RNA sequence: AACCGACAAAGGCUAACCCAUCGCGAGGUAGCAACUCCAAGCUUCCAGUCUUUAUAUAAAUAAAGAUAGUGAGGCUACCAAA
Numbered sequence: 001a002a003c004c005g006a007c008a009a010a011g012g013c014u015a016a017c018c019c020a021u022c023g024c025g026a027g028g029u030a031g032c033a034a035c036u037c038c039a040a041g042c043u044u045c046c047a048g049u050c051u052u053u054a055u056a057u058a059a060a061u062a063a064a065g066a067u068a069g070u071g072a073g074g075c076u077a078c079c080a081a082a
Stems, first nucleotide, its partner, number of pairs: 012037001018031001020029003040076004046071002048067007
The record is an 82-nucleotide RNA from Nitrosomonas sp. Nm58, which matches "c-di-GMP-I riboswitch aptamer" in Rfam. The literature on the family includes a 2008 paper in Science by Sudarsan et al., "Riboswitches in Eubacteria Sense the Second Messenger Cyclic Di-GMP". About the family: GEMM was predicted in a large-scale screen for bacterial structured RNA regulatory elements. The source organism's lineage runs through Bacteria, Pseudomonadati, Pseudomonadota, Betaproteobacteria and Nitrosomonas. The family's consensus secondary structure is taken from published work.